[Rfam]
The family of this 102-nucleotide sequence from Caldibacillus debilis is "Purine riboswitch aptamer".
Lineage of the source: Bacteria > Bacillati > Bacillaceae > Caldibacillus > Caldibacillus debilis.
A search with the family's covariance model found it, with a score of 91 bits.

RNA sequence: AAGAAAACUGAAUCGAAAACUCGUAUAAUUGCGGGAAUAUGGCCCGCAAGUCUCUACCAAGCUACCGUAAAUAGCUUGACUACGAGGAGAUGCGUGAGAGGA
Numbered sequence: 001a002a003g004a005a006a007a008c009u010g011a012a013u014c015g016a017a018a019a020c021u022c023g024u025a026u027a028a029u030u031g032c033g034g035g036a037a038u039a040u041g042g043c044c045c046g047c048a049a050g051u052c053u054c055u056a057c058c059a060a061g062c063u064a065c066c067g068u069a070a071a072u073a074g075c076u077u078g079a080c081u082a083c084g085a086g087g088a089g090a091u092g093c094g095u096g097a098g099a100g101g102a
Stems, first nucleotide, its partner, number of pairs: 020086006029049007058078007